The record is a 153-nucleotide sequence from Olea europaea, which matches "Small nucleolar RNA snoR145" in Rfam. Taxonomically the source falls in Olea europaea (Eukaryota, Streptophyta, eudicotyledons, Pentapetalae). A search with the family's covariance model found it, with a score of 57 bits.

[Rfam]
RNA sequence: GUGCGAAGGUCCCUGCGGAGGGAAAAAACUCCAUGAUGAGAUCACUCUAACACUAAGAAUUAAUACCUUGCAAAUUGAUUAUUGGGCGAGUCGUAAGAUGCCUCAAAUUUUUCUUAAAUCUUGAUGCGUCUGGGAACCCUGGGCUAUAUGAAA
Numbered sequence: 001g002u003g004c005g006a007a008g009g010u011c012c013c014u015g016c017g018g019a020g021g022g023a024a025a026a027a028a029c030u031c032c033a034u035g036a037u038g039a040g041a042u043c044a045c046u047c048u049a050a051c052a053c054u055a056a057g058a059a060u061u062a063a064u065a066c067c068u069u070g071c072a073a074a075u076u077g078a079u080u081a082u083u084g085g086g087c088g089a090g091u092c093g094u095a096a097g098a099u100g101c102c103u104c105a106a107a108u109u110u111u112u113c114u115u116a117a118a119u120c121u122u123g124a125u126g127c128g129u130c131u132g133g134g135a136a137c138c139c140u141g142g143g144c145u146a147u148a149u150g151a152a153a
Stems, first nucleotide, its partner, number of pairs: 003071002006069004011020001013018001022047002029040003033037001085144001087142001089140002097130002100127002103124004

It is annotated as an H/ACA-box small nucleolar RNA. The family's consensus secondary structure was predicted with mfold. Rfam links the family to the GO terms nucleolus and RNA processing.